The family of this 97-nucleotide RNA from Bergeriella denitrificans is "Glycine riboswitch aptamer". The source organism's lineage runs through Bacteria, Pseudomonadati, Neisseriales, Neisseriaceae and Bergeriella. A reference for the family is Mandal et al. (2004), "A glycine-dependent riboswitch that uses cooperative binding to control gene expression", Science.

RNA sequence: CGAACAUGUGCAGGAGAGCGCGGCGCAGCCCGUCUGUGCGGCCACCGAAGGCGCAGAUGCCCUUAAAUCGCUCAGGUAAAAGGACUGCACAUUGUAA
Number, nucleotide and partner (000 for none) at each position: 001c000002g000003a000004a000005c000006a092007u091008g090009u089010g088011c087012a086013g085014g000015a000016g000017a000018g000019c000020g042021c041022g000023g039024c038025g037026c036027a035028g034029c000030c000031c000032g000033u000034c028035u027036g026037u025038g024039c023040g000041g021042c020043c000044a077045c076046c075047g073048a072049a000050g000051g071052c070053g069054c000055a000056g000057a064058u000059g000060c000061c000062c000063u000064u057065a000066a000067a000068u000069c053070g052071c051072u048073c047074a000075g046076g045077u044078a000079a000080a000081a000082g000083g000084a000085c013086u012087g011088c010089a009090c008091a007092u006093u000094g000095u000096a000097a000